Background: Small nucleolar RNA SNORD22: a 127-nucleotide RNA from Oryzias javanicus. The organism belongs to Oryzias, within Eukaryota. The family has 49 seed sequences and 1,081 matches in Rfam 15.1. A reference for the family is Tycowski et al. (1996), "A mammalian gene with introns instead of exons generating stable RNA products", Nature. The base pairs follow the family's consensus structure, which was predicted with PFOLD. Rfam classes the family as a C/D-box small nucleolar RNA.
RNA sequence: CCAUUUAUGAUGACACUCGCACGCGUCUUACGCCAUGUGUCGACGCCAGACCUGAAAAGGUGAACCCACUGGUGUUGCCAUGGCAACAAGGGGAUGACUCGUUGGGGUUACCAACAGUCUGAAUGGA
Numbered sequence: 001c002c003a004u005u006u007a008u009g010a011u012g013a014c015a016c017u018c019g020c021a022c023g024c025g026u027c028u029u030a031c032g033c034c035a036u037g038u039g040u041c042g043a044c045g046c047c048a049g050a051c052c053u054g055a056a057a058a059g060g061u062g063a064a065c066c067c068a069c070u071g072g073u074g075u076u077g078c079c080a081u082g083g084c085a086a087c088a089a090g091g092g093g094a095u096g097a098c099u100c101g102u103u104g105g106g107g108u109u110a111c112c113a114a115c116a117g118u119c120u121g122a123a124u125g126g127a
Stems, first nucleotide, its partner, number of pairs: 001126004